The family of this 128-nucleotide RNA sequence from Cuscuta campestris is "Small nucleolar RNA U19". By type it is an H/ACA-box small nucleolar RNA. The source organism's lineage runs through Eukaryota, Tracheophyta, Pentapetalae, lamiids and Cuscuta sect. Cleistogrammica.
RNA sequence: UGUUGGCUUAGUUUGGGGGCAUAGAUCAAUUGGGCCCAAAGUUUCAUGCAUUUGGUUCUUUUACCCAAGUCCUUUUGAGGGGACUAUUCAGAUACUACGAAUACUUCUCCAAGCGGCCUUGGACAUGA
Numbered sequence: 001u002g003u004u005g006g007c008u009u010a011g012u013u014u015g016g017g018g019g020c021a022u023a024g025a026u027c028a029a030u031u032g033g034g035c036c037c038a039a040a041g042u043u044u045c046a047u048g049c050a051u052u053u054g055g056u057u058c059u060u061u062u063a064c065c066c067a068a069g070u071c072c073u074u075u076u077g078a079g080g081g082g083a084c085u086a087u088u089c090a091g092a093u094a095c096u097a098c099g100a101a102u103a104c105u106u107c108u109c110c111a112a113g114c115g116g117c118c119u120u121g122g123a124c125a126u127g128a
Stems, first nucleotide, its partner, number of pairs: 004021002007018003034058001037055001041051002065122005070116001074113004079109005085103003
A search with the family's covariance model found it, with a score of 60 bits.